RNA sequence: CCUGCCCCUACCAGCAUUGCAGUUGUGGCUGCUCUGUUGCAUAUGUGUCAGCAGGUGGCAGAGAGGAGAGAGGCUGUGUCUAUGCUCAGUGUCCUGACCUGUGAACAUCUGAAUGAUUAGUAACCUCACAUU
Numbered sequence: 001c002c003u004g005c006c007c008c009u010a011c012c013a014g015c016a017u018u019g020c021a022g023u024u025g026u027g028g029c030u031g032c033u034c035u036g037u038u039g040c041a042u043a044u045g046u047g048u049c050a051g052c053a054g055g056u057g058g059c060a061g062a063g064a065g066g067a068g069a070g071a072g073g074c075u076g077u078g079u080c081u082a083u084g085c086u087c088a089g090u091g092u093c094c095u096g097a098c099c100u101g102u103g104a105a106c107a108u109c110u111g112a113a114u115g116a117u118u119a120g121u122a123a124c125c126u127c128a129c130a131u132u
Stems, first nucleotide, its partner, number of pairs: 002061005007055003011051001014048002019046003024041006068129001070127004075122003083115002086112004090107003094103001
Dot-bracket structure: .((((((((.(..((...(((..((((((......))))))..)))))..).))).)))))......(.((((.(((.....((.(((((((.(........).))).)))).))....))).)))).)...

Record summary
This 132-nucleotide RNA sequence belongs to the Rfam family "Small nucleolar RNA SNORA17". By type it is an H/ACA-box small nucleolar RNA. Pairs were carried over by alignment from the consensus structure, which was predicted with RNAalifold. It is one of the family's seed sequences. snoRNA ACA 17 belongs to the H/ACA family of snoRNAs and is predicted to guide pseudouridylation of the 28S rRNA at positions U4659 and U4598. It shares the same host gene together with ACA43. NB This family has a high threshold value to exclude a large number of closely related sequences that do not appear to have conserved H and ACA boxes, and may be pseudogenes. Rfam 15.1 lists 5,784 matches to the family in 673 species.